Proteobacterial sRNA psRNA2: a 199-nucleotide RNA from Nitrosospira multiformis.
RNA sequence: GGGUUACUCCUUUGCGCUUUCAGCGCUCAAUUUGAUAAAGAUUCGCACCUCUAUCAAACCGGGUAACCCCACCUUUGGCAAGGCCUACUGUCAGAUUAAAUCUGAACUACUACAAAUGAACAGAUACUUAGUCCAGCUCGACUUCAUCUCCUUUAUAAAAUUCAACUCGUUGUCGUUCUGUUGCGCCAAUACGCUGUUU
Numbered sequence: 001g002g003g004u005u006a007c008u009c010c011u012u013u014g015c016g017c018u019u020u021c022a023g024c025g026c027u028c029a030a031u032u033u034g035a036u037a038a039a040g041a042u043u044c045g046c047a048c049c050u051c052u053a054u055c056a057a058a059c060c061g062g063g064u065a066a067c068c069c070c071a072c073c074u075u076u077g078g079c080a081a082g083g084c085c086u087a088c089u090g091u092c093a094g095a096u097u098a099a100a101u102c103u104g105a106a107c108u109a110c111u112a113c114a115a116a117u118g119a120a121c122a123g124a125u126a127c128u129u130a131g132u133c134c135a136g137c138u139c140g141a142c143u144u145c146a147u148c149u150c151c152u153u154u155a156u157a158a159a160a161u162u163c164a165a166c167u168c169g170u171u172g173u174c175g176u177u178c179u180g181u182u183g184c185g186c187c188a189a190u191a192c193g194c195u196g197u198u199u
Base pairs, nucleotide, nucleotide: 001069002068003067004066005065006064007063009062010061014026015025016024017023031058032057033056034055035054036053037052039050040049071197072196076146077145078144082139083138085136086135090107091106092104093103094102095101096100109132110131111130112129114128164190169186170185174180
The family's RNA type in Rfam is small RNA. The base pairs follow the family's consensus structure. The source organism's lineage runs through Bacteria, Pseudomonadati, Pseudomonadota, Nitrosomonadaceae and Nitrosospira multiformis.